[Rfam]
Rfam assigns this 210-nucleotide RNA sequence from Stakelama marina to the family "permuted transfer-messenger RNA". The base pairs follow the family's consensus structure, which is taken from published work. Gene Ontology term of the family: RNA catabolic process.
RNA sequence: GGCGAUAAACUGCGGCGUGCAAUAGGCGCAGCGGACCCGGGGGCAGUACCCGGCGGCUCCACCACCACCCGUCCGAACGGCGGAUGAUGACGGGGCCGAACCAGGAUCGACGUGUGUUGAAAAGCGCAGCUUUCGCCCGGAAUGGGACCACCGAAACGGCCCAUAUUCACAAGUGCCAACGAUAACGAGGCGCUCGCGAUUGCGGCCUAA
Numbered sequence: 001g002g003c004g005a006u007a008a009a010c011u012g013c014g015g016c017g018u019g020c021a022a023u024a025g026g027c028g029c030a031g032c033g034g035a036c037c038c039g040g041g042g043g044c045a046g047u048a049c050c051c052g053g054c055g056g057c058u059c060c061a062c063c064a065c066c067a068c069c070c071g072u073c074c075g076a077a078c079g080g081c082g083g084a085u086g087a088u089g090a091c092g093g094g095g096c097c098g099a100a101c102c103a104g105g106a107u108c109g110a111c112g113u114g115u116g117u118u119g120a121a122a123a124g125c126g127c128a129g130c131u132u133u134c135g136c137c138c139g140g141a142a143u144g145g146g147a148c149c150a151c152c153g154a155a156a157c158g159g160c161c162c163a164u165a166u167u168c169a170c171a172a173g174u175g176c177c178a179a180c181g182a183u184a185a186c187g188a189g190g191c192g193c194u195c196g197c198g199a200u201u202g203c204g205g206c207c208u209a210a
Base pairs, nucleotide, nucleotide: 001137002136003135004134005133015127016126017125018124027116028115029114031113032112033111037053038052039051040050041049054098055097056096057095058094059093060092138153139152140151